Rfam assigns this 246-nucleotide RNA from Tieghemiomyces parasiticus to the family "ACEA small nucleolar RNA U3". Lineage of the source: Eukaryota > Kickxellomycotina > Dimargaritales > Dimargaritaceae > Tieghemiomyces. It is annotated as a C/D-box small nucleolar RNA. The match comes from Rfam's covariance-model search (59 bits). Small nucleolar RNAs (snoRNAs) are involved in the processing and modification of rRNA in the nucleolus. There are two main classes of snoRNAs: the box C/D class, and the box H/ACA class. U3 snoRNA is a member of the box C/D class. Its Rfam clan is "U3 clan". Pairs were carried over by alignment from the consensus structure, which is taken from published work.
[Rfam]
RNA sequence: UCGACUGUACUCUACAGGAUCAUGUUCGUAGUUAAUAUGUUCUGAUCUCUCAGUACUUUAGAUGGGAAACCAGCUGGUUGAUGACACGUUGUACGCCAUCCGUAAAGGGAGGCUGUGGUCGCCGCACCUUUCAGGUGUGGUAGACUCUCGAUGAUCUUGCGUUGCUAGUACUCGCCAUCUGCGCCCUUGGGCCAGGUAGUUGAAGUCUAGCAUUCUUGCAAGGAUGGUCGUACCGUCUGACAGCCU
Numbered sequence: 001u002c003g004a005c006u007g008u009a010c011u012c013u014a015c016a017g018g019a020u021c022a023u024g025u026u027c028g029u030a031g032u033u034a035a036u037a038u039g040u041u042c043u044g045a046u047c048u049c050u051c052a053g054u055a056c057u058u059u060a061g062a063u064g065g066g067a068a069a070c071c072a073g074c075u076g077g078u079u080g081a082u083g084a085c086a087c088g089u090u091g092u093a094c095g096c097c098a099u100c101c102g103u104a105a106a107g108g109g110a111g112g113c114u115g116u117g118g119u120c121g122c123c124g125c126a127c128c129u130u131u132c133a134g135g136u137g138u139g140g141u142a143g144a145c146u147c148u149c150g151a152u153g154a155u156c157u158u159g160c161g162u163u164g165c166u167a168g169u170a171c172u173c174g175c176c177a178u179c180u181g182c183g184c185c186c187u188u189g190g191g192c193c194a195g196g197u198a199g200u201u202g203a204a205g206u207c208u209a210g211c212a213u214u215c216u217u218g219c220a221a222g223g224a225u226g227g228u229c230g231u232a233c234c235g236u237c238u239g240a241c242a243g244c245c246u
Stems, first nucleotide, its partner, number of pairs: 002039002006034001009032003016026002019023001046069001048067005054061001073244004091233005096227006105158004115147001117145001162221004167216001